The record is a 99-nucleotide RNA from Murinocardiopsis flavida, which matches "Glycine riboswitch aptamer" in Rfam.
[Rfam]
RNA sequence: CGAGACCACUCUGGAAAGCAGGAGUGCGAACUCCUCGCCGAAGGUGCAAGCCGCGCUCGUGCGGUGAAGCUCUCAGGCUCCAAUGACAGAGGGGGAGGA
Numbered sequence: 001c002g003a004g005a006c007c008a009c010u011c012u013g014g015a016a017a018g019c020a021g022g023a024g025u026g027c028g029a030a031c032u033c034c035u036c037g038c039c040g041a042a043g044g045u046g047c048a049a050g051c052c053g054c055g056c057u058c059g060u061g062c063g064g065u066g067a068a069g070c071u072c073u074c075a076g077g078c079u080c081c082a083a084u085g086a087c088a089g090a091g092g093g094g095g096a097g098g099a
Stems, first nucleotide, its partner, number of pairs: 006094002009091005020035004037078003040074002044072001046070001050065004